[Rfam]
RNA sequence: CCGGCGGGACGACCCGCCGGCCGCUUUCCAGAUCGGGACGACCCG
Dot-bracket structure: ((((((((....)))))))).............((((....))))
About this RNA:
Rfam assigns this 45-nucleotide RNA sequence from a Caulobacteraceae bacterium to the family "Guanidine-II riboswitch aptamer (mini-ykkC)". Pairs were carried over by alignment from the consensus structure, which is taken from published work.